terC RNA: a 61-nucleotide RNA sequence from Allobosea sp. RAC05. The source organism's lineage runs through Bacteria, Pseudomonadati, Pseudomonadota, Hyphomicrobiales and Allobosea. The family's consensus secondary structure is taken from published work.
RNA sequence: CCGCUGAUCCGGGCCCCUCUGGCGAGCGCUGCCGGCGCGUUCGCGAUGUCGGAUCGUUUUC
Numbered sequence: 001c002c003g004c005u006g007a008u009c010c011g012g013g014c015c016c017c018u019c020u021g022g023c024g025a026g027c028g029c030u031g032c033c034g035g036c037g038c039g040u041u042c043g044c045g046a047u048g049u050c051g052g053a054u055c056g057u058u059u060u061c
Stems, first nucleotide, its partner, number of pairs: 006055007022044008

A search with the family's covariance model found it, with a score of 63 bits.